[Rfam]
About this RNA: A member of the RNA family "Tetrahymena snoRNA TtnuHACA5" from Tetrahymena thermophila, 132 nucleotides long. It is annotated as an H/ACA-box small nucleolar RNA. Lineage of the source: Eukaryota > Sar > Alveolata > Tetrahymenina > Tetrahymena. Rfam links the family to the GO terms nucleolus and RNA processing. The literature on the family includes a 2012 paper in Nucleic Acids Res by Andersen and Nielsen, "Experimental identification and analysis of macronuclear non-coding RNAs from the ciliate Tetrahymena thermophila".

RNA sequence: UGAGCACCUAUGGUUUGAUUACUAGAUUCUAAUAUGACUAUGUAAUCCAUGCAGGAUGCUUAAAUUGAAUUUUGGUUAAACGGGAGUAUUAAAUUCAUUUUAAUAAACCUUCUUUUCCAACCAAAGACAUUU
Numbered sequence: 001u002g003a004g005c006a007c008c009u010a011u012g013g014u015u016u017g018a019u020u021a022c023u024a025g026a027u028u029c030u031a032a033u034a035u036g037a038c039u040a041u042g043u044a045a046u047c048c049a050u051g052c053a054g055g056a057u058g059c060u061u062a063a064a065u066u067g068a069a070u071u072u073u074g075g076u077u078a079a080a081c082g083g084g085a086g087u088a089u090u091a092a093a094u095u096c097a098u099u100u101u102a103a104u105a106a107a108c109c110u111u112c113u114u115u116u117c118c119a120a121c122c123a124a125a126g127a128c129a130u131u132u
Base pairs, nucleotide, nucleotide: 001062002061003060004059005058006057007055008054009053013052014051017047018046019045020044021043022042023040024039025038028037029036070126071125072124073123074122075121076120077119079116080115082113083112084111085110086109087105088104089103090102091101092100093099